[Rfam]
RNA: Small nucleolar RNA SNORA65
Organism: Salarias fasciatus
RNA sequence: CCCGCCACUACGCCGGCCCCCCCGUGACCGGCCGGAGUCCAGUGGAGGCUCAGAGCGACCCGGCUUUAGGAAACAGAGCGGCUCCUCUGCGGUGGGCCGCCCUGUGCCGAAAAGCCCGGAACACGC
Numbered sequence: 001c002c003c004g005c006c007a008c009u010a011c012g013c014c015g016g017c018c019c020c021c022c023c024g025u026g027a028c029c030g031g032c033c034g035g036a037g038u039c040c041a042g043u044g045g046a047g048g049c050u051c052a053g054a055g056c057g058a059c060c061c062g063g064c065u066u067u068a069g070g071a072a073a074c075a076g077a078g079c080g081g082c083u084c085c086u087c088u089g090c091g092g093u094g095g096g097c098c099g100c101c102c103u104g105u106g107c108c109g110a111a112a113a114g115c116c117c118g119g120a121a122c123a124c125g126c
Stems, first nucleotide, its partner, number of pairs: 005045005017031002021026001060119004064114004069108002074104003078100002082096003